[Rfam]
RNA sequence: AAAGUCCACUAGGGGAGUCAUGUAUGACUGAGACAAGAGAAAAUCUUGGACCCUUUGAACCUGAUCUAGUUCGUACUAGCGGAGGGAAGUGGAGCUGGACCUUG
Numbered sequence: 001a002a003a004g005u006c007c008a009c010u011a012g013g014g015g016a017g018u019c020a021u022g023u024a025u026g027a028c029u030g031a032g033a034c035a036a037g038a039g040a041a042a043a044u045c046u047u048g049g050a051c052c053c054u055u056u057g058a059a060c061c062u063g064a065u066c067u068a069g070u071u072c073g074u075a076c077u078a079g080c081g082g083a084g085g086g087a088a089g090u091g092g093a094g095c096u097g098g099a100c101c102u103u104g
Stems, first nucleotide, its partner, number of pairs: 006092005011054004017028004035047004060085003066079004
Rfam assigns this 104-nucleotide RNA to the family "TPP riboswitch aptamer (THI element)". From the family's description: Vitamin B(1) in its active form thiamin pyrophosphate (TPP) is an essential coenzyme that is synthesised by coupling of pyrimidine and thiazole moieties in bacteria. The match comes from Rfam's covariance-model search (78 bits).